RNA: narK RNA
RNA sequence: GGCGCGUGACUUGCUAGGAACACCCCAACCAAGCAGUCAACGCUGACUGCCCUCUCACGACAAAGGCGCCGU
Numbered sequence: 001g002g003c004g005c006g007u008g009a010c011u012u013g014c015u016a017g018g019a020a021c022a023c024c025c026c027a028a029c030c031a032a033g034c035a036g037u038c039a040a041c042g043c044u045g046a047c048u049g050c051c052c053u054c055u056c057a058c059g060a061c062a063a064a065g066g067c068g069c070c071g072u
Stems, first nucleotide, its partner, number of pairs: 033050006